Shown here is a 389-nucleotide part of an RNA from Endozoicomonas montiporae, a member of the family "Bacterial large subunit ribosomal RNA".
[Rfam]
RNA sequence: GAUAAGGGGAGUGAGAUCCUCCCCCGCCGGAAGACCAAGGGUUCCUGCGCAACGCUAAUCGGCGCAGGGUGAGUCGGCCCCUAAGGUGAGGUCGAAAGACGUAAUCGAUGGGAAACAGGUUAAUAUUCCUGUACCCCUUUUGACUGCGACGGAGUGACGGAGAAGGCUAGGCCAGCAGGGUGAUGGUUAUCCGUGUUUAAGGUUGUAGGCAAGGGUCUUAGGUAAAUCCGGGUCCCUCUUUAAUAGAGAAUGCCGAGAACUGAUGACGAACCAGCUACGGCUGGGAAGUGGUUGAUGCCAUGCUUCCAGGAAAAACUUCUAAGCUUCAGGUCAAAAGGGACCGUACCCCAAACCGACACAGGUGGUCAGGUAGAGAAUACCAAGGCGCU
Numbered sequence: 001g002a003u004a005a006g007g008g009g010a011g012u013g014a015g016a017u018c019c020u021c022c023c024c025c026g027c028c029g030g031a032a033g034a035c036c037a038a039g040g041g042u043u044c045c046u047g048c049g050c051a052a053c054g055c056u057a058a059u060c061g062g063c064g065c066a067g068g069g070u071g072a073g074u075c076g077g078c079c080c081c082u083a084a085g086g087u088g089a090g091g092u093c094g095a096a097a098g099a100c101g102u103a104a105u106c107g108a109u110g111g112g113a114a115a116c117a118g119g120u121u122a123a124u125a126u127u128c129c130u131g132u133a134c135c136c137c138u139u140u141u142g143a144c145u146g147c148g149a150c151g152g153a154g155u156g157a158c159g160g161a162g163a164a165g166g167c168u169a170g171g172c173c174a175g176c177a178g179g180g181u182g183a184u185g186g187u188u189a190u191c192c193g194u195g196u197u198u199a200a201g202g203u204u205g206u207a208g209g210c211a212a213g214g215g216u217c218u219u220a221g222g223u224a225a226a227u228c229c230g231g232g233u234c235c236c237u238c239u240u241u242a243a244u245a246g247a248g249a250a251u252g253c254c255g256a257g258a259a260c261u262g263a264u265g266a267c268g269a270a271c272c273a274g275c276u277a278c279g280g281c282u283g284g285g286a287a288g289u290g291g292u293u294g295a296u297g298c299c300a301u302g303c304u305u306c307c308a309g310g311a312a313a314a315a316c317u318u319c320u321a322a323g324c325u326u327c328a329g330g331u332c333a334a335a336a337g338g339g340a341c342c343g344u345a346c347c348c349c350a351a352a353c354c355g356a357c358a359c360a361g362g363u364g365g366u367c368a369g370g371u372a373g374a375g376a377a378u379a380c381c382a383a384g385g386c387g388c389u
Stems, first nucleotide, its partner, number of pairs: 006024006025387004033367004039347002044068006053061002075343003080111002085106003089102001091100003115132005135339011146324002151319005159306004165299003170293005175196003179192002197266002201261004208254003213236003217232003221229002271284005353362002369381004

The organism belongs to Endozoicomonas, within Bacteria.
Gene Ontology terms of the family: ribosome and structural constituent of ribosome.